[Rfam]
RNA sequence: AUUCUCUCAGCUCUGCUCAGUUACACUCGUCUCUCAUAGUGUCACUGACGUUACAAGGGAGAGAAAGCAACGGGAGCUUACAAAUGCACGGCAGGCUGGCCCUGACCCGUGGCCACCUUGUUCCUUUUUAAAGCUCGACACAA
Dot-bracket structure: .(.((.((..((((....(((.((((............)))).)))...........)))).)).)).).......(((..(.(.(......(((.(((((.........))))).)))...).)...).)))..........

This 143-nucleotide RNA from Leptobrachium leishanense belongs to the Rfam family "Small nucleolar RNA SNORA64/SNORA10 family". Gene Ontology terms of the family: nucleolus and RNA processing. The family is grouped with related families in Rfam's "SNORA64 clan". The literature on the family includes a 1999 paper in EMBO J by Narayanan et al., "Nucleolar localization signals of box H/ACA small nucleolar RNAs". Rfam's curators write: This family belongs to the H/ACA class of small nucleolar RNAs (snoRNAs) which act as guides in the the modification of uridines to pseudouridines. This family includes the human snoRNAs U64 and ACA10 and mouse MBI-29. Rfam 15.1 lists 703 matches to the family in 311 species. It scores 51 bits against the family's covariance model. The organism belongs to Leptobrachium, within Eukaryota. The family's RNA type in Rfam is H/ACA-box small nucleolar RNA. The base pairs follow the family's consensus structure, which is taken from published work.